[Rfam]
Overview
Shown here is a 68-nucleotide RNA from Mola mola, a member of the family "mir-29 microRNA precursor family". A reference for the family is Ambros (2001), "microRNAs: tiny regulators with great potential", Cell. About the family: This family represents the microRNA (miRNA) precursors mir-29. The source organism's lineage runs through Eukaryota, Eumetazoa, Euteleostomi, Eupercaria and Mola. Rfam 15.1 lists 3,328 matches to the family in 787 species. The match comes from Rfam's covariance-model search (70 bits).
RNA sequence: GGAAGCUGGUUUCAGAUGGUGGCUUAGAGUGUUGUCAUCUUUCUAGCACCAUUUGAAAUCAGUGUUCU
Numbered sequence: 001g002g003a004a005g006c007u008g009g010u011u012u013c014a015g016a017u018g019g020u021g022g023c024u025u026a027g028a029g030u031g032u033u034g035u036c037a038u039c040u041u042u043c044u045a046g047c048a049c050c051a052u053u054u055g056a057a058a059u060c061a062g063u064g065u066u067c068u
Stems, first nucleotide, its partner, number of pairs: 001068004005063010016052006025045004